[Rfam]
RNA sequence: ACGACCUUACUUGAACAGGAUCUGUUCUGUAGGUCCAUACCUCUGCGUCCUUGAGACCUAAGAAGACGAGCCAUAGUCUGGUGGAUGAACCAUGACCGUGUGAUCAGAGCGUGAUUAACGGCUCUGAUGGGUCCUGCUUGGAUCCAUUAGAGCUGUAGUAGGAUCGUGUUCUCAGUCGGAGUUACGCGCCUGGGAUGGUUACACGGCUGUCUGACAGACU
Numbered sequence: 001a002c003g004a005c006c007u008u009a010c011u012u013g014a015a016c017a018g019g020a021u022c023u024g025u026u027c028u029g030u031a032g033g034u035c036c037a038u039a040c041c042u043c044u045g046c047g048u049c050c051u052u053g054a055g056a057c058c059u060a061a062g063a064a065g066a067c068g069a070g071c072c073a074u075a076g077u078c079u080g081g082u083g084g085a086u087g088a089a090c091c092a093u094g095a096c097c098g099u100g101u102g103a104u105c106a107g108a109g110c111g112u113g114a115u116u117a118a119c120g121g122c123u124c125u126g127a128u129g130g131g132u133c134c135u136g137c138u139u140g141g142a143u144c145c146a147u148u149a150g151a152g153c154u155g156u157a158g159u160a161g162g163a164u165c166g167u168g169u170u171c172u173c174a175g176u177c178g179g180a181g182u183u184a185c186g187c188g189c190c191u192g193g194g195a196u197g198g199u200u201a202c203a204c205g206g207c208u209g210u211c212u213g214a215c216a217g218a219c220u
Stems, first nucleotide, its partner, number of pairs: 001038001003035001005033003013027006044068002048064001050062004076219005096206011109167003118156017170195006177188002